[Rfam]
The record is a 146-nucleotide RNA sequence from Scheffersomyces stipitis, which matches "U4 spliceosomal RNA" in Rfam. Its family is annotated with spliceosomal tri-snRNP complex assembly and U4 snRNP in the Gene Ontology. Rfam's curators put it in the seed alignment. Taxonomically the source falls in Scheffersomyces stipitis (Eukaryota, Fungi, Serinales, Debaryomycetaceae). It is annotated as a spliceosomal small nuclear RNA.

RNA sequence: AUCUUUAUGCAGGGGCAUUACGUGUAUCAGUGAGGAUUCGUCCGAGAUCAUGUUUUUGCUGGUUGAAAACUAUAACCUGACAGCUUCUUAGUGAUCUAGCCUUGUGCUAUGAAUGCUAAGGGAAUUUUUGGAGAACUAUCAUUUGA
Numbered sequence: 001a002u003c004u005u006u007a008u009g010c011a012g013g014g015g016c017a018u019u020a021c022g023u024g025u026a027u028c029a030g031u032g033a034g035g036a037u038u039c040g041u042c043c044g045a046g047a048u049c050a051u052g053u054u055u056u057u058g059c060u061g062g063u064u065g066a067a068a069a070c071u072a073u074a075a076c077c078u079g080a081c082a083g084c085u086u087c088u089u090a091g092u093g094a095u096c097u098a099g100c101c102u103u104g105u106g107c108u109a110u111g112a113a114u115g116c117u118a119a120g121g122g123a124a125u126u127u128u129u130g131g132a133g134a135a136c137u138a139u140c141a142u143u144u145g146a
Stems, first nucleotide, its partner, number of pairs: 020053005026048003034043003086122003089118005095112002097109004136145001138143001